[Rfam]
RNA: Bacterial RNase P class A
Organism: Nocardioides jejuensis
RNA sequence: AGGGCUGGCCGGGCGACCGCGUUCGUCCUCUUCGGAGGGCGACCGAGGAAGGUCCGGGCUCCACAGGGCAGGGUGGUCGUUAACAGCGACCCGGGGUGACCCGCGGGACAGUGCCACAGAGAAGAGACCGCCUCCGGCUGCACUUCGGUGGGGCCGGGGGUAAGGGUGAAACGGUGGUGCAAGAGACCACCAGUACGCCGGGUGACCGGCGUAGCUAGGUAAACCCCACCCGGAGCAAGUUCAAACAGUGUGUGUGACCGGUCCGCCGGUCGGAAGGCUGCUCGCCGGAGCACACGGGUAGAGCGCUUGAGCCUGUCGGCAACGGCAGGCCUAGAUGGAUGGUCGCCAGCCGGUCGGUCGUGAGGCCGCCCGGGGAACAGAACCCGGCCUAUGAGCCAGCCCUUCCG
Numbered sequence: 001a002g003g004g005c006u007g008g009c010c011g012g013g014c015g016a017c018c019g020c021g022u023u024c025g026u027c028c029u030c031u032u033c034g035g036a037g038g039g040c041g042a043c044c045g046a047g048g049a050a051g052g053u054c055c056g057g058g059c060u061c062c063a064c065a066g067g068g069c070a071g072g073g074u075g076g077u078c079g080u081u082a083a084c085a086g087c088g089a090c091c092c093g094g095g096g097u098g099a100c101c102c103g104c105g106g107g108a109c110a111g112u113g114c115c116a117c118a119g120a121g122a123a124g125a126g127a128c129c130g131c132c133u134c135c136g137g138c139u140g141c142a143c144u145u146c147g148g149u150g151g152g153g154c155c156g157g158g159g160g161u162a163a164g165g166g167u168g169a170a171a172c173g174g175u176g177g178u179g180c181a182a183g184a185g186a187c188c189a190c191c192a193g194u195a196c197g198c199c200g201g202g203u204g205a206c207c208g209g210c211g212u213a214g215c216u217a218g219g220u221a222a223a224c225c226c227c228a229c230c231c232g233g234a235g236c237a238a239g240u241u242c243a244a245a246c247a248g249u250g251u252g253u254g255u256g257a258c259c260g261g262u263c264c265g266c267c268g269g270u271c272g273g274a275a276g277g278c279u280g281c282u283c284g285c286c287g288g289a290g291c292a293c294a295c296g297g298g299u300a301g302a303g304c305g306c307u308u309g310a311g312c313c314u315g316u317c318g319g320c321a322a323c324g325g326c327a328g329g330c331c332u333a334g335a336u337g338g339a340u341g342g343u344c345g346c347c348a349g350c351c352g353g354u355c356g357g358u359c360g361u362g363a364g365g366c367c368g369c370c371c372g373g374g375g376a377a378c379a380g381a382a383c384c385c386g387g388c389c390u391a392u393g394a395g396c397c398a399g400c401c402c403u404u405c406c407g
Stems, first nucleotide, its partner, number of pairs: 001403009011392001012347007020045002023042006050390003054387005059235004066283004071231005076090005091105001092103004106226002111224002113220003128165002130161009173191006193215001194213008239304004248295006276286003311330008